This 77-nucleotide RNA from Geomesophilobacter sediminis belongs to the Rfam family "c-di-GMP-I riboswitch aptamer". The source organism's lineage runs through Bacteria, Pseudomonadati, Desulfuromonadia, Geobacterales and Geomesophilobacter.
RNA sequence: ACGCGAUACUACUAAACCAUCCGCGAGGGUGGGACGGAAAGCCCAUUGGGUCUCCUUGAGACAGCCGGGAUGCCGAA
Numbered sequence: 001a002c003g004c005g006a007u008a009c010u011a012c013u014a015a016a017c018c019a020u021c022c023g024c025g026a027g028g029g030u031g032g033g034a035c036g037g038a039a040a041g042c043c044c045a046u047u048g049g050g051u052c053u054c055c056u057u058g059a060g061a062c063a064g065c066c067g068g069g070a071u072g073c074c075g076a077a
Base pairs, nucleotide, nucleotide: 012037013036017032018031019030020029021028022027040071042069043068047067048066049065050062051061052060053059054058
It scores 42 bits against the family's covariance model.